RNA sequence: GGGCUCGUAGCUCAGCUGGUAGAGCACUCGACUUUUAAUCGAGUUGUCCCGGGUUCGAGCCCCGGCGAGCCUA
Numbered sequence: 001g002g003g004c005u006c007g008u009a010g011c012u013c014a015g016c017u018g019g020u021a022g023a024g025c026a027c028u029c030g031a032c033u034u035u036u037a038a039u040c041g042a043g044u045u046g047u048c049c050c051g052g053g054u055u056c057g058a059g060c061c062c063c064g065g066c067g068a069g070c071c072u073a
Stems, first nucleotide, its partner, number of pairs: 001072007010025004027043005049065005
tRNA: a 73-nucleotide RNA from Pelagibacterium lentulum. For this family Rfam cites "The tertiary structure of tRNA and the development of the genetic code" (Hou, Trends Biochem Sci, 1993). Transfer RNA (tRNA) molecules are approximately 80 nucleotides in length. The match comes from Rfam's covariance-model search (71 bits). It is annotated as a transfer RNA.